This 185-nucleotide sequence from Streptomyces sp. sk2.1 belongs to the Rfam family "c-di-AMP riboswitch aptamer (ydaO/yuaA leader)".
[Rfam]
RNA sequence: ACGGAACGCCGAAUCCUGCCGCUGUCCGGCAAUCCGACUCACUCGUGCACGGCAGGAACGGGGGACCCAGGCAAGCCGCCGGUCCGGUAUCCGGAACGGCUCGGGGUGAAGCCGCAUUCAUGUGCGGCCGGGCAUCUCCAGCCCGAACCCGACAGCUCACCCCGUAGGCGGCGGAGAGGAAUUCA
Numbered sequence: 001a002c003g004g005a006a007c008g009c010c011g012a013a014u015c016c017u018g019c020c021g022c023u024g025u026c027c028g029g030c031a032a033u034c035c036g037a038c039u040c041a042c043u044c045g046u047g048c049a050c051g052g053c054a055g056g057a058a059c060g061g062g063g064g065a066c067c068c069a070g071g072c073a074a075g076c077c078g079c080c081g082g083u084c085c086g087g088u089a090u091c092c093g094g095a096a097c098g099g100c101u102c103g104g105g106g107u108g109a110a111g112c113c114g115c116a117u118u119c120a121u122g123u124g125c126g127g128c129c130g131g132g133c134a135u136c137u138c139c140a141g142c143c144c145g146a147a148c149c150c151g152a153c154a155g156c157u158c159a160c161c162c163c164g165u166a167g168g169c170g171g172c173g174g175a176g177a178g179g180a181a182u183u184c185a
Stems, first nucleotide, its partner, number of pairs: 007170004014057008058165006068103001104150003112127004130144004